[Rfam]
RNA sequence: CAUUAAGAAGCUAUGCACCAGCACUAGCCUUUUAAGCUAGAGAGAGGGGACACCCUCCCCCUUAAUGA
Numbered sequence: 001c002a003u004u005a006a007g008a009a010g011c012u013a014u015g016c017a018c019c020a021g022c023a024c025u026a027g028c029c030u031u032u033u034a035a036g037c038u039a040g041a042g043a044g045a046g047g048g049g050a051c052a053c054c055c056u057c058c059c060c061c062u063u064a065a066u067g068a
Base pairs, nucleotide, nucleotide: 001067002066003065004064005063006062007061010022011021012020024040025039026038027037028036046060047059048058049057
A member of the RNA family "tRNA", 68 nucleotides long. It is annotated as a transfer RNA. Rfam's curators write: Transfer RNA (tRNA) molecules are approximately 80 nucleotides in length.